[Rfam]
RNA sequence: GUAACCGCAAGGUGAAACUGAAAGAAGGGAGAGGCAAAGACACGACCGUACGAACAGAAACAGGCAGAGAGGCAGGGUGUGGGCGAUAAGCGUGCUAGAGAACGCAAAAUCCAACUGUCACCGAAAGACACAUCAAGUAGAGCUUGACGACAUGGGUCGAAAGAACCAACA
Dot-bracket structure: .(.(((....))).)............(..(...(...(((.((..(((...........(((((......((..((((((...(((..((((........))))...))).................))))))..))...))))))))...)).)))....)...)..).